[Rfam]
The record is a 211-nucleotide RNA from Burkholderia singularis, which matches "Burkholderia sRNA Bp1_Cand738_SIPHT" in Rfam. Rfam classes the family as a small RNA.

RNA sequence: CAAAAAGCCAGCGCUGACUGGGCGCUGGCCAGGGCAACAAACAGACCGUCGAAAAACCGUGCAGGUGUCGGCCGACGGAGACGCGUUGCGUCUAUAGGACCGGGGAUGGAUUGGUUCAAAAAACUUGAGCCUGCAACCAAUGUGAGCGGAUUCUAGCAGGGUUUUAUAGAUCGUCAACACUAUAGAAAUAGAUUUUCAUAACAAAAAGUAA
Numbered sequence: 001c002a003a004a005a006a007g008c009c010a011g012c013g014c015u016g017a018c019u020g021g022g023c024g025c026u027g028g029c030c031a032g033g034g035c036a037a038c039a040a041a042c043a044g045a046c047c048g049u050c051g052a053a054a055a056a057c058c059g060u061g062c063a064g065g066u067g068u069c070g071g072c073c074g075a076c077g078g079a080g081a082c083g084c085g086u087u088g089c090g091u092c093u094a095u096a097g098g099a100c101c102g103g104g105g106a107u108g109g110a111u112u113g114g115u116u117c118a119a120a121a122a123a124c125u126u127g128a129g130c131c132u133g134c135a136a137c138c139a140a141u142g143u144g145a146g147c148g149g150a151u152u153c154u155a156g157c158a159g160g161g162u163u164u165u166a167u168a169g170a171u172c173g174u175c176a177a178c179a180c181u182a183u184a185g186a187a188a189u190a191g192a193u194u195u196u197c198a199u200a201a202c203a204a205a206a207a208g209u210a211a
Base pairs, nucleotide, nucleotide: 008028009027010026011025012024013023014022046114047113048112049110050109057071058070059069080092081091082090083089084088141179142178143177146174147173148172149171152170153169154168155167